Rfam assigns this 98-nucleotide RNA sequence from Lactococcus fujiensis to the family "Purine riboswitch aptamer". The source organism's lineage runs through Bacteria, Bacillati, Bacilli, Lactococcus and Lactococcus fujiensis. Its family is annotated with purine nucleobase biosynthetic process in the Gene Ontology. A search with the family's covariance model found it, with a score of 68 bits. Pairs were carried over by alignment from the consensus structure, which is taken from published work. The family has 133 seed sequences and 4,097 matches in Rfam 15.1.

RNA sequence: AAGACUAUAAUAAAUAAAUCUUAUUUAUACCCAGGAUAUGGCUGGGUGUUUCUACCUCACACCACAAACGUGAGACAAUAAGAAUUCAUUUUUUGUUG
Numbered sequence: 001a002a003g004a005c006u007a008u009a010a011u012a013a014a015u016a017a018a019u020c021u022u023a024u025u026u027a028u029a030c031c032c033a034g035g036a037u038a039u040g041g042c043u044g045g046g047u048g049u050u051u052c053u054a055c056c057u058c059a060c061a062c063c064a065c066a067a068a069c070g071u072g073a074g075a076c077a078a079u080a081a082g083a084a085u086u087c088a089u090u091u092u093u094u095g096u097u098g
Base pairs, nucleotide, nucleotide: 019083020082021081022080023079024078025077029047030046031045032044033043034042056074057073058072059071060070